[Rfam]
A member of the RNA family "Small nucleolar RNA U6-53/MBII-28" from Amphiprion ocellaris, 121 nucleotides long. For this family Rfam cites "RNomics: an experimental approach that identifies 201 candidates for novel, small, non-messenger RNAs in mouse" (Huttenhofer et al., EMBO J, 2001). A search with the family's covariance model found it, with a score of 77 bits.
RNA sequence: CUCCAAUGAUGAUCCAGCCAUGCUAAUACUGAUGCACCAGGCAGAUGUGUUUUGUCUGCUUGGGUGCAAGUGAGUUCAGCUCAUCUUCUCACGCUGGUGGUUUCAGUGUGUGCUGAGGAGA
Number, nucleotide and partner (000 for none) at each position: 001c120002u119003c118004c117005a000006a000007u000008g000009a000010u000011g000012a000013u000014c000015c000016a000017g000018c000019c000020a000021u000022g000023c000024u000025a000026a000027u000028a000029c000030u000031g000032a000033u000034g000035c000036a000037c000038c000039a000040g000041g000042c058043a057044g056045a055046u054047g000048u000049g000050u000051u000052u000053u000054g046055u045056c044057u043058g042059c000060u000061u000062g000063g000064g000065u000066g000067c000068a000069a000070g000071u000072g000073a000074g000075u000076u000077c000078a000079g000080c000081u000082c000083a000084u000085c000086u000087u000088c000089u000090c000091a000092c000093g000094c000095u000096g000097g000098u000099g000100g000101u000102u000103u000104c000105a000106g000107u000108g000109u000110g000111u000112g000113c000114u000115g000116a000117g004118g003119a002120g001121a000